ROOL RNA: a 573-nucleotide RNA. From the family's description: Firmicutes, Fusobacteria (1 example), Tenericutes (1 example).
RNA sequence: UAUAUGAUAUAAUGCACUUCGUAACCAGUUGGAAACACAUUUAACAAAUGUGGCUGGACACGCUGAAUAGUGGCACACGUUUUAUAGGGAUACCUUUAAAGACGUAAUAGAUGUUCCUUUAGAAGAGUAAUCUUCUGGGUAAGAAUGUAGACAAAGAUGCAUUCAAAACAUGGCGUGGUGCAAUAGGAUAAGUGGAAGUCAAGUGACUAUGAGAAAUCGGGAUCACAAUAGACGGUUCGUGGAACAAAAAUCCAUUAUUGCAAUGCGUGGUAACAUUGCUUCCGAUGGAAAUACCAAUAAGGUCCUAGUUCGGUUGAUGGGAGAAAUUCCUAUAAGAGAAAUCAUAGGUGCGAGUAGAAAAAACCCGACUUUAUUACAAUAAUAUGAUCUAAUUUUAUUAUGACUAUUUCUGAAAGUUUUCGAAAGUUGUGGGUAAAAUCCCACUUGGGUUUAUGGAAACAGACUAAAGAAGGUUAGAAUUAGCUAUUCUAUCCUCAGACUUUAGCCCCCAAUGCAUGAAUGACAGCUUAUUCUACUUGUAAGGUGAAGACCUACAUUUUUAAGACACCCAUU
Numbered sequence: 001u002a003u004a005u006g007a008u009a010u011a012a013u014g015c016a017c018u019u020c021g022u023a024a025c026c027a028g029u030u031g032g033a034a035a036c037a038c039a040u041u042u043a044a045c046a047a048a049u050g051u052g053g054c055u056g057g058a059c060a061c062g063c064u065g066a067a068u069a070g071u072g073g074c075a076c077a078c079g080u081u082u083u084a085u086a087g088g089g090a091u092a093c094c095u096u097u098a099a100a101g102a103c104g105u106a107a108u109a110g111a112u113g114u115u116c117c118u119u120u121a122g123a124a125g126a127g128u129a130a131u132c133u134u135c136u137g138g139g140u141a142a143g144a145a146u147g148u149a150g151a152c153a154a155a156g157a158u159g160c161a162u163u164c165a166a167a168a169c170a171u172g173g174c175g176u177g178g179u180g181c182a183a184u185a186g187g188a189u190a191a192g193u194g195g196a197a198g199u200c201a202a203g204u205g206a207c208u209a210u211g212a213g214a215a216a217u218c219g220g221g222a223u224c225a226c227a228a229u230a231g232a233c234g235g236u237u238c239g240u241g242g243a244a245c246a247a248a249a250a251u252c253c254a255u256u257a258u259u260g261c262a263a264u265g266c267g268u269g270g271u272a273a274c275a276u277u278g279c280u281u282c283c284g285a286u287g288g289a290a291a292u293a294c295c296a297a298u299a300a301g302g303u304c305c306u307a308g309u310u311c312g313g314u315u316g317a318u319g320g321g322a323g324a325a326a327u328u329c330c331u332a333u334a335a336g337a338g339a340a341a342u343c344a345u346a347g348g349u350g351c352g353a354g355u356a357g358a359a360a361a362a363a364c365c366c367g368a369c370u371u372u373a374u375u376a377c378a379a380u381a382a383u384a385u386g387a388u389c390u391a392a393u394u395u396u397a398u399u400a401u402g403a404c405u406a407u408u409u410c411u412g413a414a415a416g417u418u419u420u421c422g423a424a425a426g427u428u429g430u431g432g433g434u435a436a437a438a439u440c441c442c443a444c445u446u447g448g449g450u451u452u453a454u455g456g457a458a459a460c461a462g463a464c465u466a467a468a469g470a471a472g473g474u475u476a477g478a479a480u481u482a483g484c485u486a487u488u489c490u491a492u493c494c495u496c497a498g499a500c501u502u503u504a505g506c507c508c509c510c511a512a513u514g515c516a517u518g519a520a521u522g523a524c525a526g527c528u529u530a531u532u533c534u535a536c537u538u539g540u541a542a543g544g545u546g547a548a549g550a551c552c553u554a555c556a557u558u559u560u561u562a563a564g565a566c567a568c569c570c571a572u573u
Base pairs, nucleotide, nucleotide: 010567013564016561025057026056027055028054029053038050039049040048041047059177060176061175062174063173064172073114074113075112077108080101081100082099083098084097086095087094088093115139116138117137122135123134124133125132126131143164144163145162146161147160148159149158191538192537195534197529198528200526207347208346209345210344211343212342217337218336219306220305221304222303223302224301235245236244237243238242251289252288253287254286255285256284260279261278262277263276264275265274268296269295270294271293310368311367312366313365319330320329321328322327351426357421358420359419360418361417409499410498411497412496429515432442433441446511447510448509449460462508465505467503468502469501472495473494475491476490477489478488479487480486542553543552544551545550

The family's RNA type in Rfam is small RNA. The sequence is in the family's curated seed alignment.